[Rfam]
RNA: Small nucleolar RNA snR80
Organism: Calycina marina
RNA sequence: GUCACUUGUCAAACACUCUGGCUCUUACCCCCUUUUCCCUUGUGGAUUUGGUUCAAUCUAUGGUAUGGGCCUAUUUUUGCAAACAAGGAGAAUAAUGCUCCGUUUACUCACCGCGAUACCUUUUGUCUUUGACGUGGGUAUAGUGGUCCAUAACUUCUGGUCAACAU
Dot-bracket structure: ......(((..........(((((.((((.((.................))..........)))).)))))...........)))..............((.........((((.((((((..............)))))).))))............)).......
Numbered sequence: 001g002u003c004a005c006u007u008g009u010c011a012a013a014c015a016c017u018c019u020g021g022c023u024c025u026u027a028c029c030c031c032c033u034u035u036u037c038c039c040u041u042g043u044g045g046a047u048u049u050g051g052u053u054c055a056a057u058c059u060a061u062g063g064u065a066u067g068g069g070c071c072u073a074u075u076u077u078u079g080c081a082a083a084c085a086a087g088g089a090g091a092a093u094a095a096u097g098c099u100c101c102g103u104u105u106a107c108u109c110a111c112c113g114c115g116a117u118a119c120c121u122u123u124u125g126u127c128u129u130u131g132a133c134g135u136g137g138g139u140a141u142a143g144u145g146g147u148c149c150a151u152a153a154c155u156u157c158u159g160g161u162c163a164a165c166a167u
Stems, first nucleotide, its partner, number of pairs: 007085003020071005026065004031051002100160002111146004116141006